Shown here is a 126-nucleotide RNA sequence, a member of the family "Alphaproteobacterial ar14". It scores 94 bits against the family's covariance model.
[Rfam]
RNA sequence: CGGUGUCAGACGGCCCACUCCUCCUGCCAAGGAUCGUCUGUCGGAACACCGGCACUCCUCCUCCCAGCCGUUGUUUAAGUUUUUUCGGAAAGCCUGCCGCACCUCCUCCCGCGGCAGGCUUUUUCG
Number, nucleotide and partner (000 for none) at each position: 001c000002g000003g000004u000005g000006u000007c040008a039009g038010a000011c036012g035013g034014c032015c031016c000017a000018c000019u000020c000021c000022u000023c000024c000025u000026g000027c000028c000029a000030a000031g015032g014033a000034u013035c012036g011037u000038c009039u008040g007041u000042c000043g000044g076045a075046a074047c073048a072049c000050c070051g069052g068053c067054a000055c000056u000057c000058c000059u000060c000061c000062u000063c000064c000065c000066a000067g053068c052069c051070g050071u000072u048073g047074u046075u045076u044077a000078a000079g000080u000081u000082u000083u000084u000085u000086c000087g000088g000089a000090a121091a120092g119093c118094c117095u116096g115097c114098c113099g112100c111101a000102c000103c000104u000105c000106c000107u000108c000109c000110c000111g100112c099113g098114g097115c096116a095117g094118g093119c092120u091121u090122u000123u000124u000125c000126g000
The pairing is the family consensus, mapped onto this sequence. Rfam's curators write: Smr14C2 was renamed NfeR1 (Nodule Formation Efficiency RNA) highly expressed in salt stress and during the symbiotic interaction on legume roots.